This 96-nucleotide RNA from Yoonia ponticola belongs to the Rfam family "Glycine riboswitch aptamer". It scores 62 bits against the family's covariance model.

Nucleotides: 096
Base pairs, nucleotide, nucleotide: 007090009088010087011086012085013084020033021032022031023030035076036075037074038072039071042070043069044068048063049062050061051060
Number, partner (000 for none) and nucleotide at each position: 001000g002000c003000a004000u005000a006000a007090c008000a009088c010087g011086c012085c013084g014000a015000a016000g017000a018000g019000a020033g021032a022031c023030c024000u025000u026000u027000g028000a029000u030023g031022g032021u033020c034000c035076a036075c037074c038072g039071a040000a041000g042070g043069a044068g045000c046000a047000a048063g049062c050061c051060c052000u053000g054000u055000u056000g057000u058000u059000g060051g061050g062049g063048u064000g065000a066000a067000u068044c069043u070042c071039u072038c073000a074037g075036g076035u077000c078000c079000a080000a081000a082000g083000a084013c085012g086011g087010c088009g089000g090007g091000g092000g093000c094000a095000a096000c